The family of this 73-nucleotide sequence from Pseudomonas sp. GM50 is "narK RNA".
Lineage of the source: Bacteria > Pseudomonadota > Pseudomonadales > Pseudomonadaceae > Pseudomonas.
The base pairs follow the family's consensus structure, which is taken from published work.
[Rfam]
RNA sequence: GGCACAGUUCUCGCUAAGUAAAUCACUGCAAGGUAACCAACGGCGGUUGCCCCACCUACGACGAAGACGUCGC
Number, nucleotide and partner (000 for none) at each position: 001g000002g000003c000004a000005c000006a000007g000008u000009u000010c000011u000012c000013g000014c000015u000016a000017a000018g000019u000020a000021a000022a000023u000024c000025a000026c000027u000028g000029c000030a000031a000032g051033g050034u049035a048036a047037c046038c045039a000040a000041c000042g000043g000044c000045g038046g037047u036048u035049g034050c033051c032052c000053c000054a000055c000056c000057u000058a000059c000060g000061a000062c000063g000064a000065a000066g000067a000068c000069g000070u000071c000072g000073c000